[Rfam]
RNA sequence: GGCGUUGUAUUUGUUUUAGAAUUCCUACGCUUUACCUGGUGAACUUAAAAAUGGCAAAGCGUUUGAAAUCUGAACCGAAUGCGCG
Numbered sequence: 001g002g003c004g005u006u007g008u009a010u011u012u013g014u015u016u017u018a019g020a021a022u023u024c025c026u027a028c029g030c031u032u033u034a035c036c037u038g039g040u041g042a043a044c045u046u047a048a049a050a051a052u053g054g055c056a057a058a059g060c061g062u063u064u065g066a067a068a069u070c071u072g073a074a075c076c077g078a079a080u081g082c083g084c085g
Base pairs, nucleotide, nucleotide: 010079011078012077013076015074016073017072018071019070020069022067023066024065027062028061029060030059031058032057033056035054036053
mir-927 microRNA precursor family: an 85-nucleotide RNA sequence from Diachasma alloeum.
The literature on the family includes a 2007 paper in Genome Res by Stark et al., "Systematic discovery and characterization of fly microRNAs using 12 Drosophila genomes".
The family has 16 seed sequences and 174 matches in Rfam 15.1.
NCBI's taxonomy places the organism under Eukaryota, Altocrustacea, Insecta, Pterygota, Diachasma.